This 119-nucleotide RNA sequence belongs to the Rfam family "Betaproteobacteria-1 RNA". The family's consensus secondary structure is taken from published work. Rfam classes the family as a small RNA.
RNA sequence: CGCGCGUCGGGACGGGGACUACACACCAGCCGGCGCGGGAUAGGCCGGGACUGAGGGACUGUCUUGAGAAACCGGCACAGGCGGCGAGGCUAGCACCUGAAGACGAACGGCUGGCGGGC
Numbered sequence: 001c002g003c004g005c006g007u008c009g010g011g012a013c014g015g016g017g018a019c020u021a022c023a024c025a026c027c028a029g030c031c032g033g034c035g036c037g038g039g040a041u042a043g044g045c046c047g048g049g050a051c052u053g054a055g056g057g058a059c060u061g062u063c064u065u066g067a068g069a070a071a072c073c074g075g076c077a078c079a080g081g082c083g084g085c086g087a088g089g090c091u092a093g094c095a096c097c098u099g100a101a102g103a104c105g106a107a108c109g110g111c112u113g114g115c116g117g118g119c
Stems, first nucleotide, its partner, number of pairs: 001039001003037008027053003044076005061104004078099004089115006